[Rfam]
RNA: mir-7132 microRNA precursor family
Organism: Danio rerio
RNA sequence: GACUUGGUCUAAGCUCCUCAGUGUGAUGAUUAAACCUGAGGAGUUUAGAGCAAGUAAA
Numbered sequence: 001g002a003c004u005u006g007g008u009c010u011a012a013g014c015u016c017c018u019c020a021g022u023g024u025g026a027u028g029a030u031u032a033a034a035c036c037u038g039a040g041g042a043g044u045u046u047a048g049a050g051c052a053a054g055u056a057a058a
Stems, first nucleotide, its partner, number of pairs: 002055005008049014023035001
Dot-bracket structure: .(((((.((((((((((((((.(...........))))))))))))))).)))))...